RNA: Lnt RNA
Organism: Chlorobium phaeobacteroides
RNA sequence: CAGGAAAUACCAUGAGUUGAUUCCUGUUAAAUAACAGCUUGAAAUAAAUUUAAAGAAUAA
Numbered sequence: 001c002a003g004g005a006a007a008u009a010c011c012a013u014g015a016g017u018u019g020a021u022u023c024c025u026g027u028u029a030a031a032u033a034a035c036a037g038c039u040u041g042a043a044a045u046a047a048a049u050u051u052a053a054a055g056a057a058u059a060a
Stems, first nucleotide, its partner, number of pairs: 001026006
Dot-bracket structure: ((((((..............))))))..................................